This 137-nucleotide sequence from Dasypus novemcinctus belongs to the Rfam family "Small nucleolar RNA SNORA58". Rfam 15.1 lists 471 matches to the family in 320 species. The sequence is in the family's curated seed alignment. ACA52 is a member of the H/ACA class of snoRNA that guide the sites of modification of uridines to pseudouridines. Clan: SNORA44 clan. The base pairs follow the family's consensus structure, which was predicted with PFOLD. For this family Rfam cites "RNomics: an experimental approach that identifies 201 candidates for novel, small, non-messenger RNAs in mouse" (Huttenhofer et al., EMBO J, 2001).
[Rfam]
RNA sequence: UAGCAUACAAGUAGACCUUGCCUGGCUUUGUUUAUAGCCAUGCAAGGGGGACAAUGUAUGCAACAGUAAUUUGGAAGUUUGUGCCAGCUCUAGCCAGCUUAAUUAAUGGCUGGAUAAAUUGCAGUAUUCCAACAUUC
Numbered sequence: 001u002a003g004c005a006u007a008c009a010a011g012u013a014g015a016c017c018u019u020g021c022c023u024g025g026c027u028u029u030g031u032u033u034a035u036a037g038c039c040a041u042g043c044a045a046g047g048g049g050g051a052c053a054a055u056g057u058a059u060g061c062a063a064c065a066g067u068a069a070u071u072u073g074g075a076a077g078u079u080u081g082u083g084c085c086a087g088c089u090c091u092a093g094c095c096a097g098c099u100u101a102a103u104u105a106a107u108g109g110c111u112g113g114a115u116a117a118a119u120u121g122c123a124g125u126a127u128u129c130c131a132a133c134a135u136u137c
Stems, first nucleotide, its partner, number of pairs: 003061006016047006023040002073130004079126001082123003094113005